Early nodulin 40: a 197-nucleotide RNA sequence from Musa acuminata. On this family, see Gultyaev and Roussis, Nucleic Acids Res 2007: "Identification of conserved secondary structures and expansion segments in enod40 RNAs reveals new enod40 homologues in plants". NCBI's taxonomy places the organism under Eukaryota, Viridiplantae, Mesangiospermae, Petrosaviidae, Musa acuminata. Gene Ontology term of the family: nodulation. It scores 48 bits against the family's covariance model. The family's RNA type in Rfam is non-coding RNA gene.
RNA sequence: AUGAUAUAGGUUGACACUCGGAGGGGAGGGGAAGCAAGGGGACGAAGGUUCGUUCUUCCUCGCCAAACCCCUCCCCUCCCUUCUCCUUCAGUUUGUCCAUGCGUUCCGUCUGCACACAAAGCGGAGCUUGUGGCUGAGGCAUGCAUGGCAAACCGGCAAGUCACGCGACGGCAGAGGGAAACUCCAUGACGAGUCGC
Numbered sequence: 001a002u003g004a005u006a007u008a009g010g011u012u013g014a015c016a017c018u019c020g021g022a023g024g025g026g027a028g029g030g031g032a033a034g035c036a037a038g039g040g041g042a043c044g045a046a047g048g049u050u051c052g053u054u055c056u057u058c059c060u061c062g063c064c065a066a067a068c069c070c071c072u073c074c075c076c077u078c079c080c081u082u083c084u085c086c087u088u089c090a091g092u093u094u095g096u097c098c099a100u101g102c103g104u105u106c107c108g109u110c111u112g113c114a115c116a117c118a119a120a121g122c123g124g125a126g127c128u129u130g131u132g133g134c135u136g137a138g139g140c141a142u143g144c145a146u147g148g149c150a151a152a153c154c155g156g157c158a159a160g161u162c163a164c165g166c167g168a169c170g171g172c173a174g175a176g177g178g179a180a181a182c183u184c185c186a187u188g189a190c191g192a193g194u195c196g197c
Stems, first nucleotide, its partner, number of pairs: 021078011091153006110139002181194004